The record is a 94-nucleotide RNA from Streptococcus sp. oral taxon 056, which matches "Cia-dependent small RNA csRNA1" in Rfam. On this family, see Halfmann et al., Mol Microbiol 2007: "Identification of the genes directly controlled by the response regulator CiaR in Streptococcus pneumoniae: five out of 15 promoters drive expression of small non-coding RNAs".

RNA sequence: CAUAAACAAAGACCUCCUAACUUUGUUUAGAAAUCCUAAAACUUUUUCAUAAUAAUCUCCAAAACACCGCUGUUCUAUUAUGACAGUGGUGUUU
Dot-bracket structure: ..(((((((((.........)))))))))...................................(((((((((.........)))))))))...

It is one of the family's seed sequences.